[Rfam]
Record summary: This 77-nucleotide RNA from Alligator mississippiensis belongs to the Rfam family "Mammalian CPEB3 ribozyme". A reference for the family is Teixeira et al. (2004), "Autocatalytic RNA cleavage in the human beta-globin pre-mRNA promotes transcription termination", Nature. A search with the family's covariance model found it, with a score of 38 bits. The base pairs follow the family's consensus structure, which is taken from published work.

RNA sequence: GUCGCAAGUUUUGAGGCCAUAGCAGAAGCACUCACAGCAUGGCCUGUCAGAUUCCAACAAAAUCUGCAAAGUCUGCU
Numbered sequence: 001g002u003c004g005c006a007a008g009u010u011u012u013g014a015g016g017c018c019a020u021a022g023c024a025g026a027a028g029c030a031c032u033c034a035c036a037g038c039a040u041g042g043c044c045u046g047u048c049a050g051a052u053u054c055c056a057a058c059a060a061a062a063u064c065u066g067c068a069a070a071g072u073c074u075g076c077u
Stems, first nucleotide, its partner, number of pairs: 015044004021077006028040001048066006